A member of the RNA family "Actino-pnp RNA" from Mycolicibacterium smegmatis, 69 nucleotides long. NCBI's taxonomy places the organism under Bacteria, Bacillati, Actinomycetes, Mycobacterium (subgen. Mycolicibacterium), Mycolicibacterium smegmatis. Pairs were carried over by alignment from the consensus structure, which is taken from published work.
[Rfam]
RNA sequence: GGCGGUCUUCGGUAGUGGCUGCCGGGAAUCCAAACAGGUUUAUCCCGACAGCUUCGAUCGACGGCCGUA
Numbered sequence: 001g002g003c004g005g006u007c008u009u010c011g012g013u014a015g016u017g018g019c020u021g022c023c024g025g026g027a028a029u030c031c032a033a034a035c036a037g038g039u040u041u042a043u044c045c046c047g048a049c050a051g052c053u054u055c056g057a058u059c060g061a062c063g064g065c066c067g068u069a
Stems, first nucleotide, its partner, number of pairs: 002068006009061005017053005023047004028043002032041001